A member of the RNA family "c-di-GMP-I riboswitch aptamer" from Emergencia timonensis, 82 nucleotides long. The family's consensus secondary structure is taken from published work. It scores 58 bits against the family's covariance model. GEMM was predicted in a large-scale screen for bacterial structured RNA regulatory elements. The source organism's lineage runs through Bacteria, Bacillota, Peptostreptococcales, Anaerovoracaceae and Emergencia.

Nucleotides: 082
Base pairs, nucleotide, nucleotide: 012037013036017032018031020029021028022027040076041075042074043073047072048071049068050067051066056062057061
Number, partner (000 for none) and nucleotide at each position: 001000a002000g003000a004000c005000g006000a007000u008000a009000u010000g011000g012037g013036u014000a015000a016000a017032c018031c019000u020029g021028c022027c023000g024000a025000a026000a027022g028021g029020c030000c031018g032017g033000g034000g035000c036013a037012c038000a039000a040076a041075a042074c043073u044000a045000c046000a047072g048071g049068g050067c051066c052000u053000g054000u055000u056062c057061u058000g059000a060000g061057a062056g063000g064000a065000u066051g067050g068049u069000a070000g071048c072047c073043a074042g075041u076040u077000g078000c079000a080000g081000a082000c